L2-Alphaproteobacteria ribosomal protein leader: a 69-nucleotide sequence from Roseobacter ponti.
Taxonomically the source falls in Roseobacter (Bacteria, Pseudomonadati, Pseudomonadota, Roseobacteraceae).
RNA sequence: GGGCACCUACGGGGGCCUUUAUACCAUAGUCGUCAUCGCGACGACGCACAGCAAAACGGAAGACAGACA
Numbered sequence: 001g002g003g004c005a006c007c008u009a010c011g012g013g014g015g016c017c018u019u020u021a022u023a024c025c026a027u028a029g030u031c032g033u034c035a036u037c038g039c040g041a042c043g044a045c046g047c048a049c050a051g052c053a054a055a056a057c058g059g060a061a062g063a064c065a066g067a068c069a
Base pairs, nucleotide, nucleotide: 001018002017003016004015006014007013008012029045030044031043032042033041034040
The match comes from Rfam's covariance-model search (58 bits).
It is annotated as a cis-regulatory leader.